[Rfam]
RNA: c-di-AMP riboswitch aptamer (ydaO/yuaA leader)
Organism: Actinomadura rubrisoli
RNA sequence: GCAGCGGCAACGCCGAGUCCGCCGUCGCGCGGAGCCGGGGACCCACAUCGGCCGGCGUCCAGGGACCUCCCUGGACGGACAUGCCGGUCCCGGGGUGAAUCGGCGCGACUCUCCCUCCAUGGCGAGAGCCCGCCGUAGGGCCACUUCCACGCCCGAACCCGUCAGCUAACCCGGUAGGCGUCUUGGAAGAUAAGG
Numbered sequence: 001g002c003a004g005c006g007g008c009a010a011c012g013c014c015g016a017g018u019c020c021g022c023c024g025u026c027g028c029g030c031g032g033a034g035c036c037g038g039g040g041a042c043c044c045a046c047a048u049c050g051g052c053c054g055g056c057g058u059c060c061a062g063g064g065a066c067c068u069c070c071c072u073g074g075a076c077g078g079a080c081a082u083g084c085c086g087g088u089c090c091c092g093g094g095g096u097g098a099a100u101c102g103g104c105g106c107g108a109c110u111c112u113c114c115c116u117c118c119a120u121g122g123c124g125a126g127a128g129c130c131c132g133c134c135g136u137a138g139g140g141c142c143a144c145u146u147c148c149a150c151g152c153c154c155g156a157a158c159c160c161g162u163c164a165g166c167u168a169a170c171c172c173g174g175u176a177g178g179c180g181u182c183u184u185g186g187a188a189g190a191u192a193a194g195g
Stems, first nucleotide, its partner, number of pairs: 011180004018033005034175006044092001093160003101135004138154004